[Rfam]
RNA sequence: CUCUGGGCUGAAGCCCAGAGUUAUGCGAAUUCGUGCCUACGGCACU
Numbered sequence: 001c002u003c004u005g006g007g008c009u010g011a012a013g014c015c016c017a018g019a020g021u022u023a024u025g026c027g028a029a030u031u032c033g034u035g036c037c038u039a040c041g042g043c044a045c046u
Stems, first nucleotide, its partner, number of pairs: 001020008033045005
Dot-bracket structure: ((((((((....))))))))............(((((...))))).